[Rfam]
RNA sequence: CCCGCCACUGUGCAGGUCUGUAAAAGUGACUUUGUACUGCCAAAGGAAGGCUAAUAGUGACCCAGCUCUAGGAAACAGGGCUACCUAACUUAAUGGGUGACUCUGUGCCGAAAGGUCUGGAACAAGU
Numbered sequence: 001c002c003c004g005c006c007a008c009u010g011u012g013c014a015g016g017u018c019u020g021u022a023a024a025a026g027u028g029a030c031u032u033u034g035u036a037c038u039g040c041c042a043a044a045g046g047a048a049g050g051c052u053a054a055u056a057g058u059g060a061c062c063c064a065g066c067u068c069u070a071g072g073a074a075a076c077a078g079g080g081c082u083a084c085c086u087a088a089c090u091u092a093a094u095g096g097g098u099g100a101c102u103c104u105g106u107g108c109c110g111a112a113a114g115g116u117c118u119g120g121a122a123c124a125a126g127u
Stems, first nucleotide, its partner, number of pairs: 005046002009042002018034001020030001021028002062120004066115002069112001071109002076105005084097003
Background: The family of this 127-nucleotide sequence from Carassius auratus is "Small nucleolar RNA SNORA65". The family's RNA type in Rfam is H/ACA-box small nucleolar RNA. U65 belongs to the H/ACA class of snoRNAs which are thought to guide the sites of modification of uridines to pseudouridines. The family's consensus secondary structure was predicted with RNAalifold. Clan: SNORA65 clan. The literature on the family includes a 2001 paper in EMBO J by Huttenhofer et al., "RNomics: an experimental approach that identifies 201 candidates for novel, small, non-messenger RNAs in mouse".